RNA: small nucleolar RNA snR92
Organism: Schizosaccharomyces japonicus
RNA sequence: AAACCAGGUAUUGCCUGCCGGCGUAUCCUAGCUCCUCGGAGCGUUAGACGUCGGUAUACUUGUAUACCGGGGAGAAGAAGCGUCGUCUCCACCCUCGUGAGCUGCAUCCCACAGCGCUUGAGGACUAUAAUCACCGACCUACACUU
Numbered sequence: 001a002a003a004c005c006a007g008g009u010a011u012u013g014c015c016u017g018c019c020g021g022c023g024u025a026u027c028c029u030a031g032c033u034c035c036u037c038g039g040a041g042c043g044u045u046a047g048a049c050g051u052c053g054g055u056a057u058a059c060u061u062g063u064a065u066a067c068c069g070g071g072g073a074g075a076a077g078a079a080g081c082g083u084c085g086u087c088u089c090c091a092c093c094c095u096c097g098u099g100a101g102c103u104g105c106a107u108c109c110c111a112c113a114g115c116g117c118u119u120g121a122g123g124a125c126u127a128u129a130a131u132c133a134c135c136g137a138c139c140u141a142c143a144c145u146u
Stems, first nucleotide, its partner, number of pairs: 004071002007068001009066003013059001016056005022050003026046001031042003082138004093123005099117001102114002